[Rfam]
RNA: Clostridiales-1 RNA
Organism: Butyrivibrio sp. YAB3001
RNA sequence: UGAUGUCAGGGGCAAAAGUCUGAACCCACGACAAGCUUGCUUGAGAGUGGGUGAAAGACCUUAUGACCCGCCGGAACAUAAGGAAAAAGUGGGGUAGGGGCCCCAUGAUUUCCGAAUGUUACGUAGGAUUGUGGGAGCGCAUUGCGCGAAACAAUCCGUGACAUCA
Numbered sequence: 001u002g003a004u005g006u007c008a009g010g011g012g013c014a015a016a017a018g019u020c021u022g023a024a025c026c027c028a029c030g031a032c033a034a035g036c037u038u039g040c041u042u043g044a045g046a047g048u049g050g051g052u053g054a055a056a057g058a059c060c061u062u063a064u065g066a067c068c069c070g071c072c073g074g075a076a077c078a079u080a081a082g083g084a085a086a087a088a089g090u091g092g093g094g095u096a097g098g099g100g101c102c103c104c105a106u107g108a109u110u111u112c113c114g115a116a117u118g119u120u121a122c123g124u125a126g127g128a129u130u131g132u133g134g135g136a137g138c139g140c141a142u143u144g145c146g147c148g149a150a151a152c153a154a155u156c157c158g159u160g161a162c163a164u165c166a
Stems, first nucleotide, its partner, number of pairs: 001166007010068002013065001016061001018059004024052006032043004072123002075120005082113004089106007126157007137147004